RNA sequence: UUAGUCCUUGUCUUGGGGAGCAUGGCUGUUCAAUGAGCGUUUAGUGAGAGCAGUUCUGCUGACAUAAAAUAAUAUAUAACGCAUUAGUAUUGCCUCAAUACUGAUGCAAUUUUUGGCUAG
Numbered sequence: 001u002u003a004g005u006c007c008u009u010g011u012c013u014u015g016g017g018g019a020g021c022a023u024g025g026c027u028g029u030u031c032a033a034u035g036a037g038c039g040u041u042u043a044g045u046g047a048g049a050g051c052a053g054u055u056c057u058g059c060u061g062a063c064a065u066a067a068a069a070u071a072a073u074a075u076a077u078a079a080c081g082c083a084u085u086a087g088u089a090u091u092g093c094c095u096c097a098a099u100a101c102u103g104a105u106g107c108a109a110u111u112u113u114u115g116g117c118u119a120g
Stems, first nucleotide, its partner, number of pairs: 005019005020059003025054007037045002081107012
RNA: U4atac minor spliceosomal RNA